[Rfam]
RNA sequence: GGUCAAGAGUCUCAGCGCGAAGCCCUGGCUUGCUGAGCGGCAACCCUCUCCCGCGGUGGGGUGCUCCAGGUGAAGACCUGGCCGGGCGGCGACCGCCACCCGAGCAAGCGCGGUCA
Number, nucleotide and partner (000 for none) at each position: 001g078002g077003u076004c075005a000006a000007g000008a000009g038010u000011c037012u036013c035014a034015g033016c032017g000018c000019g000020a000021a030022g029023c000024c000025c000026u000027g000028g000029c022030u021031u000032g016033c015034u014035g013036a012037g011038c009039g065040g064041c063042a000043a000044c061045c060046c059047u000048c056049u055050c000051c000052c000053g000054c000055g049056g048057u000058g000059g046060g045061g044062u000063g041064c040065u039066c000067c000068a000069g000070g000071u000072g000073a000074a000075g004076a003077c002078c001079u000080g000081g105082c104083c102084g101085g100086g099087c000088g097089g096090c095091g000092a000093c000094c000095g090096c089097c088098a000099c086100c085101c084102g083103a000104g082105c081106a000107a000108g000109c000110g000111c000112g000113g000114u000115c000116a000

SAM (S-adenosyl methionine) riboswitch aptamer: a 116-nucleotide RNA from Nakamurella aerolata. Taxonomically the source falls in Nakamurella (Bacteria, Actinomycetota, Actinomycetes, Nakamurellales). The match comes from Rfam's covariance-model search (98 bits). The base pairs follow the family's consensus structure, which is taken from published work.